The family of this 85-nucleotide RNA sequence from Chelonia mydas is "mir-301 microRNA precursor family". Its family is annotated with RISC complex and miRNA-mediated post-transcriptional gene silencing in the Gene Ontology. The source organism's lineage runs through Eukaryota, Craniata, Dipnotetrapodomorpha, Americhelydia and Chelonia.
RNA sequence: UGGAAUCGCUGGCUCUGACAAUGUUGCACUACUGUCUGCACAAAUAAAGCAGUGCAAUAAUAUUGUCAAAGCAUUUGGUUCCAGU
Numbered sequence: 001u002g003g004a005a006u007c008g009c010u011g012g013c014u015c016u017g018a019c020a021a022u023g024u025u026g027c028a029c030u031a032c033u034g035u036c037u038g039c040a041c042a043a044a045u046a047a048a049g050c051a052g053u054g055c056a057a058u059a060a061u062a063u064u065g066u067c068a069a070a071g072c073a074u075u076u077g078g079u080u081c082c083a084g085u
Stems, first nucleotide, its partner, number of pairs: 002082003007077002012072003016068004023058008034041001

Background:
The base pairs follow the family's consensus structure, which was predicted with WAR. The match comes from Rfam's covariance-model search (71 bits).